[Rfam]
RNA sequence: CUCUGGAGAGUCUCAUUAUGGGCACCGAAGGAGCAAGCCAGCGUGUAGCUGGUGAACCUCUCAGGUACAAGGGACAGAG
Number, nucleotide and partner (000 for none) at each position: 001c079002u078003c077004u076005g075006g000007a000008g000009a000010g000011u000012c022013u021014c020015a019016u000017u000018a000019u015020g014021g013022g012023c000024a066025c065026c064027g062028a061029a000030g000031g060032a059033g058034c000035a000036a000037g053038c052039c051040a050041g049042c000043g000044u000045g000046u000047a000048g000049c041050u040051g039052g038053u037054g000055a000056a000057c000058c033059u032060c031061u028062c027063a000064g026065g025066u024067a000068c000069a000070a000071g000072g000073g000074a000075c005076a004077g003078a002079g001

The family of this 79-nucleotide sequence from Desulfotalea psychrophila is "Glycine riboswitch aptamer". This family represents the bacterial glycine riboswitch.